[Rfam]
RNA sequence: GGUGCAGCGAGGAGUGGUAACUCCACCACCGUUGGCGUGUAUUAGCUGGCCAACGGUUGAGGAGUUCCUCGGCCUCGCAGCGUG
Numbered sequence: 001g002g003u004g005c006a007g008c009g010a011g012g013a014g015u016g017g018u019a020a021c022u023c024c025a026c027c028a029c030c031g032u033u034g035g036c037g038u039g040u041a042u043u044a045g046c047u048g049g050c051c052a053a054c055g056g057u058u059g060a061g062g063a064g065u066u067c068c069u070c071g072g073c074c075u076c077g078c079a080g081c082g083u084g
Base pairs, nucleotide, nucleotide: 003082004081005080007078008077009076010075011074012073016069017068019066020065021064022063023062026059029056030055031054032053033052034051035050036049

A member of the RNA family "mir-2765 microRNA precursor family" from Ignelater luminosus, 84 nucleotides long.
Lineage of the source: Eukaryota > Allotriocarida > Polyphaga > Agrypninae > Ignelater.
The family has 6 seed sequences and 109 matches in Rfam 15.1.
A search with the family's covariance model found it, with a score of 66 bits.
Its family is annotated with miRNA-mediated post-transcriptional gene silencing and RISC complex in the Gene Ontology.
Pairs were carried over by alignment from the consensus structure, which was predicted with RNAalifold.